[Rfam]
Overview
mir-223 microRNA precursor family: a 99-nucleotide RNA sequence from Oryzias latipes.

RNA sequence: GACCAGGCCCCCCACUUAGUGUAUUUGACAAGCUGAGUUGGACACUCUAUCUCUGUGAGUGUCAGUUUGUCAAAUACCCCAAGUGAGGUGUCACUUGUC
Numbered sequence: 001g002a003c004c005a006g007g008c009c010c011c012c013c014a015c016u017u018a019g020u021g022u023a024u025u026u027g028a029c030a031a032g033c034u035g036a037g038u039u040g041g042a043c044a045c046u047c048u049a050u051c052u053c054u055g056u057g058a059g060u061g062u063c064a065g066u067u068u069g070u071c072a073a074a075u076a077c078c079c080c081a082a083g084u085g086a087g088g089u090g091u092c093a094c095u096u097g098u099c
Stems, first nucleotide, its partner, number of pairs: 013085004019079001021077014041063004046058002